This 75-nucleotide RNA from Alligator mississippiensis belongs to the Rfam family "Mammalian CPEB3 ribozyme". The organism belongs to Alligator, within Eukaryota.
RNA sequence: CCAGAAGUUUGGGGCCAUAGCAGAAGCACUCACAGUGUGGCCUGUCAGAUUUCAACAAAAUCUGUGAAUUCUGCU
Numbered sequence: 001c002c003a004g005a006a007g008u009u010u011g012g013g014g015c016c017a018u019a020g021c022a023g024a025a026g027c028a029c030u031c032a033c034a035g036u037g038u039g040g041c042c043u044g045u046c047a048g049a050u051u052u053c054a055a056c057a058a059a060a061u062c063u064g065u066g067a068a069u070u071c072u073g074c075u
Stems, first nucleotide, its partner, number of pairs: 013042004019075007026038003046064007